[Rfam]
RNA sequence: GUACGUAGUUGGAGAGUCGCUAUACUUUUAAAGUAUAGAGGAAAGUCCGAGCUUCGCUGAAGAAAAAUGCUAGGUAAUGCCUAGCUAGGUAUUAAUGCCUAAGGGAAAGUGCAACAGAAAAUAUACCGCCUUUAUGGUAAGGGUGAAAAGGUGAGGUAAGAGCUUACCGUGAUCUCGGUGACGAGAUUUGCAUUGCAAACCCCAUUUGAAGCAAGAUCAAGUAGCAGAACAUGCAAGAUUUAUUUCUUGCCUCUCCUCUUCUGAGAGUAAUUGUUCUAGGGUAGAUCGCUGGAACUUGCUGGAGACGGCAAGGCUAGAGAAAUGACUCUCGGUGCUAUUAGCACUACAGAACUCGGCUUAUAUACUACGUGCGCAC
Numbered sequence: 001g002u003a004c005g006u007a008g009u010u011g012g013a014g015a016g017u018c019g020c021u022a023u024a025c026u027u028u029u030a031a032a033g034u035a036u037a038g039a040g041g042a043a044a045g046u047c048c049g050a051g052c053u054u055c056g057c058u059g060a061a062g063a064a065a066a067a068u069g070c071u072a073g074g075u076a077a078u079g080c081c082u083a084g085c086u087a088g089g090u091a092u093u094a095a096u097g098c099c100u101a102a103g104g105g106a107a108a109g110u111g112c113a114a115c116a117g118a119a120a121a122u123a124u125a126c127c128g129c130c131u132u133u134a135u136g137g138u139a140a141g142g143g144u145g146a147a148a149a150g151g152u153g154a155g156g157u158a159a160g161a162g163c164u165u166a167c168c169g170u171g172a173u174c175u176c177g178g179u180g181a182c183g184a185g186a187u188u189u190g191c192a193u194u195g196c197a198a199a200c201c202c203c204a205u206u207u208g209a210a211g212c213a214a215g216a217u218c219a220a221g222u223a224g225c226a227g228a229a230c231a232u233g234c235a236a237g238a239u240u241u242a243u244u245u246c247u248u249g250c251c252u253c254u255c256c257u258c259u260u261c262u263g264a265g266a267g268u269a270a271u272u273g274u275u276c277u278a279g280g281g282u283a284g285a286u287c288g289c290u291g292g293a294a295c296u297u298g299c300u301g302g303a304g305a306c307g308g309c310a311a312g313g314c315u316a317g318a319g320a321a322a323u324g325a326c327u328c329u330c331g332g333u334g335c336u337a338u339u340a341g342c343a344c345u346a347c348a349g350a351a352c353u354c355g356g357c358u359u360a361u362a363u364a365c366u367a368c369g370u371g372c373g374c375a376c
Base pairs, nucleotide, nucleotide: 001372002371003370004369005368006367007366008365009364011361012330013329014328015327016326017325018324020038021037022036023035024034025033026032027031043359044358045357047356048355049354050353051352052211053210054209055208065207066206067205068204069203070084071083072082073081074080085103086101087100088099089098090097091096104202105201109200110199111196112195113194126142127141128138129137130136150168151167152166153165154164155163169191171188172187173186174185175184176183177182215287216286217285218284226277227276228275229274230273255267295312296311297310298309299308300307301306

About this RNA:
This 376-nucleotide RNA from Candidatus Fokinia solitaria belongs to the Rfam family "Bacterial RNase P class A". The match comes from Rfam's covariance-model search (273 bits). Its Rfam clan is "RNaseP clan". Lineage of the source: Bacteria > Pseudomonadati > Rickettsiales > Candidatus Midichloriaceae > Candidatus Fokinia. It is annotated as a ribozyme.